[Rfam]
RNA: Small nucleolar RNA U83B
Organism: Rhinolophus ferrumequinum
RNA sequence: AUUGUUUGGUAAUGAGGCCCUGGAAUGAGCGCUGGGCACAGCGCCGGAGUCAGACUGCGGAGACAUGCCUUGCUCCUUCCUCCUGAGAACAGC
Numbered sequence: 001a002u003u004g005u006u007u008g009g010u011a012a013u014g015a016g017g018c019c020c021u022g023g024a025a026u027g028a029g030c031g032c033u034g035g036g037c038a039c040a041g042c043g044c045c046g047g048a049g050u051c052a053g054a055c056u057g058c059g060g061a062g063a064c065a066u067g068c069c070u071u072g073c074u075c076c077u078u079c080c081u082c083c084u085g086a087g088a089a090c091a092g093c
Base pairs, nucleotide, nucleotide: 002092003091004090005089
Dot-bracket structure: .((((...................................................................................)))).